[Rfam]
RNA sequence: UAUUAAAAAAUAAUCCAUUAUUAUUAUUAAAAACUAGUUUGGCUGACGAAAUAAUCAGACGGUGACAUAUGGUAUGCCAUCGGUAACUCAUGGUGAUGUACAAGGCCAGUUUUCAACCGUAAAAAUGAAUGAAAUUUUUAACA
Numbered sequence: 001u002a003u004u005a006a007a008a009a010a011u012a013a014u015c016c017a018u019u020a021u022u023a024u025u026a027u028u029a030a031a032a033a034c035u036a037g038u039u040u041g042g043c044u045g046a047c048g049a050a051a052u053a054a055u056c057a058g059a060c061g062g063u064g065a066c067a068u069a070u071g072g073u074a075u076g077c078c079a080u081c082g083g084u085a086a087c088u089c090a091u092g093g094u095g096a097u098g099u100a101c102a103a104g105g106c107c108a109g110u111u112u113u114c115a116a117c118c119g120u121a122a123a124a125a126u127g128a129a130u131g132a133a134a135u136u137u138u139u140a141a142c143a
Stems, first nucleotide, its partner, number of pairs: 003141007011132001013130002017126003021122004027116002030113003
Shown here is a 143-nucleotide sequence from Gossypium australe, a member of the family "MIR7502 microRNA precursor family". Lineage of the source: Eukaryota > Euphyllophyta > Mesangiospermae > Malvaceae > Gossypium. The match comes from Rfam's covariance-model search (84 bits).